RNA sequence: CGGUGAGGCUUCCUGUCCGAUAUCUACGGAGGUACUCGAUUAUGCUGUGGGAUACAGGGAUUGUUAUCCUUAGACGCGAAUGUCGUCACUAGCAUGGUGUGAGGAUGGGUUUGAUGCCCA
Numbered sequence: 001c002g003g004u005g006a007g008g009c010u011u012c013c014u015g016u017c018c019g020a021u022a023u024c025u026a027c028g029g030a031g032g033u034a035c036u037c038g039a040u041u042a043u044g045c046u047g048u049g050g051g052a053u054a055c056a057g058g059g060a061u062u063g064u065u066a067u068c069c070u071u072a073g074a075c076g077c078g079a080a081u082g083u084c085g086u087c088a089c090u091a092g093c094a095u096g097g098u099g100u101g102a103g104g105a106u107g108g109g110u111u112u113g114a115u116g117c118c119c120a
Base pairs, nucleotide, nucleotide: 001019002018003017008033009032010031011030012029013028035103036102037101038100039098040097041096042095043094044093045092046091049070050069051068052067053066054064055063056062073087074086075085076084106120107119108118109117110116

epsC RNA: a 120-nucleotide sequence from Bacillus sp. 1NLA3E. The family's RNA type in Rfam is cis-regulatory element. The organism belongs to Bacillus, within Bacteria. The family has 30 seed sequences and 450 matches in Rfam 15.1. It scores 92 bits against the family's covariance model.